This 78-nucleotide sequence from Methylocapsa palsarum belongs to the Rfam family "Makes More Granules Regulator RNA (mmgR)". Taxonomically the source falls in Methylocapsa (Bacteria, Pseudomonadati, Pseudomonadota, Hyphomicrobiales). Gene Ontology terms of the family: response to nitrogen compound, DNA-templated transcription, termination and protein binding. It is annotated as a small RNA. A reference for the family is Corbino et al. (2005), "Evidence for a second class of S-adenosylmethionine riboswitches and other regulatory RNA motifs in alpha-proteobacteria", Genome Biol.
RNA sequence: CCUGGAUGCCCUCCUUGGGCGUUUCCUCCCAUGACUUGGGCCGCUUGCAGCAAUGCUGGCGGCUCUUUUAUUGACGCC
Numbered sequence: 001c002c003u004g005g006a007u008g009c010c011c012u013c014c015u016u017g018g019g020c021g022u023u024u025c026c027u028c029c030c031a032u033g034a035c036u037u038g039g040g041c042c043g044c045u046u047g048c049a050g051c052a053a054u055g056c057u058g059g060c061g062g063c064u065c066u067u068u069u070a071u072u073g074a075c076g077c078c
Stems, first nucleotide, its partner, number of pairs: 008020004040063006047056002
Dot-bracket structure: .......((((.....))))...................((((((.((......)).))))))...............